The record is a 65-nucleotide sequence from Drosophila mojavensis, which matches "mir-3 microRNA precursor family" in Rfam.
The base pairs follow the family's consensus structure, which was predicted with RNAalifold.
Its Rfam clan is "mir-3 clan".
On this family, see Aravin et al., Dev Cell 2003: "The small RNA profile during Drosophila melanogaster development".
RNA sequence: UGGGAUGCAUUUUGUGCAGAUGUCUAACGAUUGGAAACCCAUCACUGGGCAAAGUGUGUCUCAAA
Numbered sequence: 001u002g003g004g005a006u007g008c009a010u011u012u013u014g015u016g017c018a019g020a021u022g023u024c025u026a027a028c029g030a031u032u033g034g035a036a037a038c039c040c041a042u043c044a045c046u047g048g049g050c051a052a053a054g055u056g057u058g059u060c061u062c063a064a065a
Base pairs, nucleotide, nucleotide: 001063002062003061004060005059006058007057008056009055010054013051014050015049017047018046019045